[Rfam]
RNA sequence: GCUCCACGGAGUUGGCACAGCCUCUGCAUAAGCACUGGCACGAUUUCAUAAAGCGCGACCUUCAACGAUGAAGGCUGCGCUUCCCGAGAGAACGGGACUUGGACAAAGGCGUCCUCGCUAGGUGACUAGCGGGACGCC
Number, nucleotide and partner (000 for none) at each position: 001g000002c000003u000004c000005c000006a000007c000008g000009g000010a000011g000012u106013u105014g104015g027016c026017a025018c000019a000020g000021c000022c000023u000024c000025u017026g016027c015028a000029u000030a000031a000032g000033c000034a000035c000036u000037g000038g000039c000040a000041c000042g000043a000044u000045u000046u000047c000048a000049u000050a000051a000052a000053g080054c079055g078056c077057g076058a000059c074060c073061u000062u071063c070064a000065a000066c000067g000068a000069u000070g063071a062072a000073g060074g059075c000076u057077g056078c055079g054080c053081u000082u097083c096084c095085c094086g093087a000088g000089a000090g000091a000092a000093c086094g085095g084096g083097a082098c000099u000100u000101g000102g000103a000104c014105a013106a012107a000108g138109g137110c136111g135112u134113c133114c132115u000116c131117g130118c129119u128120a127121g126122g000123u000124g000125a000126c121127u120128a119129g118130c117131g116132g114133g113134a112135c111136g110137c109138c108
Description
The family of this 138-nucleotide RNA sequence from Pseudomonas benzenivorans is "Pseudomonas sRNA P11". It scores 137 bits against the family's covariance model. NCBI's taxonomy places the organism under Bacteria, Pseudomonadati, Pseudomonadales, Pseudomonadaceae, Pseudomonas. The family's consensus secondary structure was predicted with RNAalifold. From the family's description: This small RNA (sRNA) was computationally identified in the genome of the opportunistic pathogen Pseudomonas aeruginosa and its expression verified by northern blot analysis. P11 is located between a putative threonine protein kinase and putative nitrate reductase and appears to be conserved in several Pseudomonas species. P11 has a predicted Rho independent terminator at the 3'end but the function of P11 is unknown. By type it is a non-coding RNA gene.